Shown here is a 137-nucleotide sequence from Capsella rubella, a member of the family "Small nucleolar RNA U19". The match comes from Rfam's covariance-model search (105 bits). Taxonomically the source falls in Capsella (Eukaryota, Streptophytina, Gunneridae, rosids). Rfam links the family to the GO terms nucleolus and RNA processing. On this family, see Marker et al., Curr Biol 2002: "Experimental RNomics: identification of 140 candidates for small non-messenger RNAs in the plant Arabidopsis thaliana".

RNA sequence: GUCUGGCUUAGUUAGGAGGCAUAAAUCAAUCUGAUCAUCAAUACUUUCCUGUAUUGUUUUGAUCUACGAGUUCUUUUUGAAGAGGAGCUUUGCUUUUGCUUAAAAAUCAAGCUUCUCCCAAGCAGCCUCGGACAUAU
Numbered sequence: 001g002u003c004u005g006g007c008u009u010a011g012u013u014a015g016g017a018g019g020c021a022u023a024a025a026u027c028a029a030u031c032u033g034a035u036c037a038u039c040a041a042u043a044c045u046u047u048c049c050u051g052u053a054u055u056g057u058u059u060u061g062a063u064c065u066a067c068g069a070g071u072u073c074u075u076u077u078u079g080a081a082g083a084g085g086a087g088c089u090u091u092g093c094u095u096u097u098g099c100u101u102a103a104a105a106a107u108c109a110a111g112c113u114u115c116u117c118c119c120a121a122g123c124a125g126c127c128u129c130g131g132a133c134a135u136a137u
Stems, first nucleotide, its partner, number of pairs: 004021002007018003033064005041057003045053001067130004072125001076122004082117008